[Rfam]
RNA sequence: UGAUAUAGGUGUCAAAAGUCAAAAUGCGUACAUGCUUGCAUGUUAAGCAUUAUGACUUUAUGACCCGAACAAAUAUGAGGAAUUAGCAAUUUACGCAGUAAAUUAGCGGUUUCCGAAUAUUUGUAGAAUUGCGAGAAUGACGUAAGUCAUGGAGCAAUUCGUAUAUCA
Number, nucleotide and partner (000 for none) at each position: 001u168002g167003a166004u165005a164006u163007a162008g000009g000010u000011g064012u063013c062014a000015a000016a058017a057018g056019u055020c054021a053022a000023a051024a050025u049026g048027c047028g000029u045030a043031c042032a041033u040034g039035c000036u000037u000038g000039c034040a033041u032042g031043u030044u000045a029046a000047g027048c026049a025050u024051u023052a000053u021054g020055a019056c018057u017058u016059u000060a000061u000062g013063a012064c011065c000066c000067g000068a000069a124070c123071a122072a121073a120074u119075a118076u117077g000078a000079g114080g113081a112082a111083u000084u000085a000086g107087c106088a104089a103090u102091u101092u100093a099094c098095g000096c000097a000098g094099u093100a092101a091102a090103u089104u088105a000106g087107c086108g000109g000110u000111u082112u081113c080114c079115g000116a000117a076118u075119a074120u073121u072122u071123g070124u069125a000126g160127a159128a158129u157130u156131g155132c154133g000134a000135g000136a000137a150138u149139g148140a147141c000142g000143u000144a000145a000146g000147u140148c139149a138150u137151g000152g000153a000154g132155c131156a130157a129158u128159u127160c126161g000162u007163a006164u005165a004166u003167c002168a001

Annotation
Clostridiales-1 RNA: a 168-nucleotide RNA from Butyrivibrio sp. INlla14. Lineage of the source: Bacteria > Bacillati > Bacillota > Clostridia > Butyrivibrio.